[Rfam]
mir-16 microRNA precursor family: a 72-nucleotide RNA from Alligator mississippiensis.
For this family Rfam cites "Cryo-EM Structures of Human Drosha and DGCR8 in Complex with Primary MicroRNA" (Partin et al., Mol Cell, 2020).
Its Rfam clan is "mir-15 clan".
Taxonomically the source falls in Alligator (Eukaryota, Deuterostomia, Chordata, Euteleostomi).
Rfam 15.1 lists 4,705 matches to the family in 758 species.
The match comes from Rfam's covariance-model search (46 bits).
Gene Ontology terms of the family: miRNA-mediated post-transcriptional gene silencing and RISC complex.
RNA sequence: CCUCCACUCUAGCAGCACAUAGAUAUUGGCGCUCUCAGUCCUGCCAGUGUCCUUGUGCUGCCCCAGUGAGGU
Numbered sequence: 001c002c003u004c005c006a007c008u009c010u011a012g013c014a015g016c017a018c019a020u021a022g023a024u025a026u027u028g029g030c031g032c033u034c035u036c037a038g039u040c041c042u043g044c045c046a047g048u049g050u051c052c053u054u055g056u057g058c059u060g061c062c063c064c065a066g067u068g069a070g071g072u
Base pairs, nucleotide, nucleotide: 002071003070005068006067007066010065012061013060014059015058016057017056018055022051023050024049025048026047027046028045029044030043031042